[Rfam]
The family of this 92-nucleotide sequence from Patiria miniata is "mir-2005 microRNA precursor family". Taxonomically the source falls in Patiria (Eukaryota, Asterozoa, Valvatida, Asterinidae). The base pairs follow the family's consensus structure, which was predicted with RNAalifold.

Nucleotides: 092
Stems, first nucleotide, its partner, number of pairs: 002091003006086001008083007017074001019072008033060007040052002
Number, partner (000 for none) and nucleotide at each position: 001000u002091u003090c004089a005000a006086u007000a008083u009082c010081a011080g012079g013078u014077g015000a016000a017074g018000u019072c020071c021070a022069a023068u024067a025066g026065g027000g028000a029000g030000g031000g032000c033060a034059u035058c036057g037056c038055a039054g040052g041051u042000g043000a044000u045000u046000g047000a048000c049000a050000a051041g052040c053000a054039c055038u056037g057036c058035g059034g060033u061000c062000c063000a064000a065026c066025c067024u068023a069022u070021u071020g072019g073000u074017c075000a076000a077014u078013a079012c080011c081010u082009g083008g084000u085000c086006a087000c088000a089004u090003g091002a092000c
Gene Ontology terms of the family: RISC complex and miRNA-mediated post-transcriptional gene silencing.